[Rfam]
RNA sequence: GUAUCGGUUUAGCUCAGUGGUUACUUCCUACCUCUGUAAUGUUUCUAACUCACGGUCUGCAGGCUAUGAGGUUCAACCACGGGCGCUGUCCGAUGCGUUU
Numbered sequence: 001g002u003a004u005c006g007g008u009u010u011a012g013c014u015c016a017g018u019g020g021u022u023a024c025u026u027c028c029u030a031c032c033u034c035u036g037u038a039a040u041g042u043u044u045c046u047a048a049c050u051c052a053c054g055g056u057c058u059g060c061a062g063g064c065u066a067u068g069a070g071g072u073u074c075a076a077c078c079a080c081g082g083g084c085g086c087u088g089u090c091c092g093a094u095g096c097g098u099u100u
Stems, first nucleotide, its partner, number of pairs: 002095006012084004017080006
The family of this 100-nucleotide RNA from Mastacembelus armatus is "Vault RNA". It is annotated as a non-coding RNA gene. A search with the family's covariance model found it, with a score of 58 bits.